[Rfam]
RNA sequence: CAGAUAUAAGGGCAAACCCGUUGAAAAGCGGGGACGCAAAGCCAGGGGUCUAAGGUCUGCGGACUAUGAUAGCCGGUUGCCACA
Numbered sequence: 001c002a003g004a005u006a007u008a009a010g011g012g013c014a015a016a017c018c019c020g021u022u023g024a025a026a027a028g029c030g031g032g033g034a035c036g037c038a039a040a041g042c043c044a045g046g047g048g049u050c051u052a053a054g055g056u057c058u059g060c061g062g063a064c065u066a067u068g069a070u071a072g073c074c075g076g077u078u079g080c081c082a083c084a
Stems, first nucleotide, its partner, number of pairs: 012037002017032006040078004046074002048070003055064003